[Rfam]
This 136-nucleotide RNA sequence from Oceanispirochaeta sp. M1 belongs to the Rfam family "Molybdenum/Tungsten riboswitch aptamer (Moco RNA motif)". The match comes from Rfam's covariance-model search (73 bits).
RNA sequence: CUAUUAACUAAUUUCCGAGGUUCUGCCUCUACAGAUUCUGCCUUUUCCAGGCACGAUCCAUGAGUCUUUGCCCGCAGGGUUGUUCCGGAAACAGAACAGCCUCCCGUGUUUGGAAAGGAAAUACAUUGAAACGUGC
Numbered sequence: 001c002u003a004u005u006a007a008c009u010a011a012u013u014u015c016c017g018a019g020g021u022u023c024u025g026c027c028u029c030u031a032c033a034g035a036u037u038c039u040g041c042c043u044u045u046u047c048c049a050g051g052c053a054c055g056a057u058c059c060a061u062g063a064g065u066c067u068u069u070g071c072c073c074g075c076a077g078g079g080u081u082g083u084u085c086c087g088g089a090a091a092c093a094g095a096a097c098a099g100c101c102u103c104c105c106g107u108g109u110u111u112g113g114a115a116a117g118g119a120a121a122u123a124c125a126u127u128g129a130a131a132c133g134u135g136c
Stems, first nucleotide, its partner, number of pairs: 004129001006127001011122006019072003025066001027064003034058003077102009087092001103113002